The record is a 97-nucleotide RNA from Pelusios castaneus, which matches "Small nucleolar RNA U83B" in Rfam.
RNA sequence: AUGGGUCAGUGAUGAGGCAGUGUAGAUGCAGCACUGGGUAAGGUGACUGAAUUGGCCUUCAGGAGGUAUUCCAUAAUGCUCUGCUCUGGAGAUCUUU
Numbered sequence: 001a002u003g004g005g006u007c008a009g010u011g012a013u014g015a016g017g018c019a020g021u022g023u024a025g026a027u028g029c030a031g032c033a034c035u036g037g038g039u040a041a042g043g044u045g046a047c048u049g050a051a052u053u054g055g056c057c058u059u060c061a062g063g064a065g066g067u068a069u070u071c072c073a074u075a076a077u078g079c080u081c082u083g084c085u086c087u088g089g090a091g092a093u094c095u096u097u
Stems, first nucleotide, its partner, number of pairs: 001097001003095003
Dot-bracket structure: (.(((.......................................................................................))).)

The base pairs follow the family's consensus structure. From the family's description: U83B belongs to the C/D family of snoRNAs. U83B like U83A has no documented RNA target and they share the same host gene with the C/D box snoRNA U43 (RPL3). N.B. U83A/B/C have no sequence similarity with the U83 snoRNA that was cloned by Jady and Kiss (2000). The family's RNA type in Rfam is C/D-box small nucleolar RNA. Rfam 15.1 lists 966 matches to the family in 652 species. The literature on the family includes a 2000 paper in Nucleic Acids Res by Jady and Kiss, "Characterisation of the U83 and U84 small nucleolar RNAs: two novel 2'-O-ribose methylation guide RNAs that lack complementarities to ribosomal RNAs".